[Rfam]
This 53-nucleotide RNA sequence from Dorea sp. D27 belongs to the Rfam family "S4-Clostridia ribosomal protein leader".
The family's RNA type in Rfam is cis-regulatory leader.
The family's consensus secondary structure is taken from published work.
The sequence is in the family's curated seed alignment.
NCBI's taxonomy places the organism under Bacteria, Bacillota, Clostridia, Lachnospirales, Dorea.
Clan: Ribosomal Protein S4 Leader clan.
RNA sequence: GAAAGGGCGUGCAUACCGACACGCCUGGGAGCAGCCAAAGCUCCCCAGUUAGA
Numbered sequence: 001g002a003a004a005g006g007g008c009g010u011g012c013a014u015a016c017c018g019a020c021a022c023g024c025c026u027g028g029g030a031g032c033a034g035c036c037a038a039a040g041c042u043c044c045c046c047a048g049u050u051a052g053a
Stems, first nucleotide, its partner, number of pairs: 005026007027045006